The record is a 397-nucleotide RNA from Prevotella koreensis, which matches "Bacterial RNase P class A" in Rfam.
The family's RNA type in Rfam is ribozyme.
NCBI's taxonomy places the organism under Bacteria, Bacteroidota, Bacteroidales, Prevotellaceae, Prevotella.
[Rfam]
RNA sequence: GCAGCGUUCCGGCUCUGUCGCUUGUGUCGCUUCAUGCAAUGACACAAGAGGAAAGUCCGGGCAGCAUAGGGUGCUCCACUUCCGAAAAUAGAAGUUGUUGGCGACAGCAAGUAAGAGCAGAAGAGAAUGACCGCCAUGCCGUUUGGCUGAAAAGACAAGGACAAGGUAAGGGUGAGAAGGUGGUGUAAGAGACCACCAGGCGGCGGGUGACCGUCGUGCUGUGCUCACUGGAGGCUGCAAGUUCAUGUAAACCGUCGUUGAGGGUUGCCCGCCCGACUAACUCCGACGGAGGGUAGAACGCUUGAGGUGCGGGGUGACUCGCAUUUUAGAUAGAUGACAGGCACCGGCGACAAUCAUGCCGCCGGAACAGAACCCGGCUUAUAGGGGCACUGCUUUC
Numbered sequence: 001g002c003a004g005c006g007u008u009c010c011g012g013c014u015c016u017g018u019c020g021c022u023u024g025u026g027u028c029g030c031u032u033c034a035u036g037c038a039a040u041g042a043c044a045c046a047a048g049a050g051g052a053a054a055g056u057c058c059g060g061g062c063a064g065c066a067u068a069g070g071g072u073g074c075u076c077c078a079c080u081u082c083c084g085a086a087a088a089u090a091g092a093a094g095u096u097g098u099u100g101g102c103g104a105c106a107g108c109a110a111g112u113a114a115g116a117g118c119a120g121a122a123g124a125g126a127a128u129g130a131c132c133g134c135c136a137u138g139c140c141g142u143u144u145g146g147c148u149g150a151a152a153a154g155a156c157a158a159g160g161a162c163a164a165g166g167u168a169a170g171g172g173u174g175a176g177a178a179g180g181u182g183g184u185g186u187a188a189g190a191g192a193c194c195a196c197c198a199g200g201c202g203g204c205g206g207g208u209g210a211c212c213g214u215c216g217u218g219c220u221g222u223g224c225u226c227a228c229u230g231g232a233g234g235c236u237g238c239a240a241g242u243u244c245a246u247g248u249a250a251a252c253c254g255u256c257g258u259u260g261a262g263g264g265u266u267g268c269c270c271g272c273c274c275g276a277c278u279a280a281c282u283c284c285g286a287c288g289g290a291g292g293g294u295a296g297a298a299c300g301c302u303u304g305a306g307g308u309g310c311g312g313g314g315u316g317a318c319u320c321g322c323a324u325u326u327u328a329g330a331u332a333g334a335u336g337a338c339a340g341g342c343a344c345c346g347g348c349g350a351c352a353a354u355c356a357u358g359c360c361g362c363c364g365g366a367a368c369a370g371a372a373c374c375c376g377g378c379u380u381a382u383a384g385g386g387g388c389a390c391u392g393c394u395u396u397c
Stems, first nucleotide, its partner, number of pairs: 001393004006388005011382001012342002015340005021048009053380003057377005062237004071269001074233005079094004096110001097108004111228002115226005131171002133167003137163002140160001179197006199219001200217007241299004252289005262283005306325008

The family's consensus secondary structure is taken from published work.